[Rfam]
RNA sequence: UGAUGCUCAUGACUUGUAACAGCAACUCCAUGUGGAACGUGGAAACAGUAUUCCGGUGGAGAUGCUGUUAUCUGUGAUGGACAU
Numbered sequence: 001u002g003a004u005g006c007u008c009a010u011g012a013c014u015u016g017u018a019a020c021a022g023c024a025a026c027u028c029c030a031u032g033u034g035g036a037a038c039g040u041g042g043a044a045a046c047a048g049u050a051u052u053c054c055g056g057u058g059g060a061g062a063u064g065c066u067g068u069u070a071u072c073u074g075u076g077a078u079g080g081a082c083a084u
Base pairs, nucleotide, nucleotide: 010077012075016071017070018069019068020067021066022065023064026061027060028059029058030057031056033055034054035053
RNA: mir-194 microRNA precursor family